[Rfam]
RNA sequence: GGAUCCUCUCGAGUCCAAUCGGCGGGGCAACUCACAGAGCUCCCGGUAGCUCCCAUUACGCCCCGGGGAAGGUCCCCGGAUCCCUGGUAGAGAGUACCGUCGGCCGUGUCCGGCUAGCUUCGGGCGCAGUCGGCGCAAGACGGGACGAUUCUGAUCGGUGCGCCGGUAUGCUCGAGGUGUUGGUCAUAGCACAGUUAUAUUGGAGCCUCGAGUGUAAUGCGAGAGGUAACAUAACGGGGCCCACUCUGAGAGGAUU
Numbered sequence: 001g002g003a004u005c006c007u008c009u010c011g012a013g014u015c016c017a018a019u020c021g022g023c024g025g026g027g028c029a030a031c032u033c034a035c036a037g038a039g040c041u042c043c044c045g046g047u048a049g050c051u052c053c054c055a056u057u058a059c060g061c062c063c064c065g066g067g068g069a070a071g072g073u074c075c076c077c078g079g080a081u082c083c084c085u086g087g088u089a090g091a092g093a094g095u096a097c098c099g100u101c102g103g104c105c106g107u108g109u110c111c112g113g114c115u116a117g118c119u120u121c122g123g124g125c126g127c128a129g130u131c132g133g134c135g136c137a138a139g140a141c142g143g144g145a146c147g148a149u150u151c152u153g154a155u156c157g158g159u160g161c162g163c164c165g166g167u168a169u170g171c172u173c174g175a176g177g178u179g180u181u182g183g184u185c186a187u188a189g190c191a192c193a194g195u196u197a198u199a200u201u202g203g204a205g206c207c208u209c210g211a212g213u214g215u216a217a218u219g220c221g222a223g224a225g226g227u228a229a230c231a232u233a234a235c236g237g238g239g240c241c242c243a244c245u246c247u248g249a250g251a252g253g254a255u256u
Stems, first nucleotide, its partner, number of pairs: 002256010014204006023065006037052005071241002074239004086098004099114005116178001118176001121174006129167008147156003206226004